[Rfam]
RNA: U5 spliceosomal RNA
Organism: Vitis rotundifolia
Nucleotides: 118
Stems, first nucleotide, its partner, number of pairs: 003077004008067011027053008095118001097117006
Number, partner (000 for none) and nucleotide at each position: 001000a002000g003077c004076c005075a006074u007000g008067u009066g010065g011064u012063g013062a014061g015060c016059a017058c018057a019000c020000a021000g022000c023000g024000a025000a026000c027053u028052a029051u030050u031049c032048u033047u034046u035000c036000g037000c038000c039000u040000u041000u042000u043000a044000c045000u046034a047033a048032a049031g050030a051029a052028u053027a054000c055000c056000g057018u058017g059016u060015g061014c062013u063012c064011g065010c066009c067008a068000u069000u070000a071000u072000a073000a074006g075005u076004g077003g078000c079000a080000u081000a082000c083000g084000c085000c086000a087000a088000u089000u090000u091000u092000u093000g094000g095118a096000g097117g098116g099115g100114u101113u102112g103000a104000u105000g106000u107000g108000u109000a110000a111000u112102u113101a114100g115099c116098c117097c118095u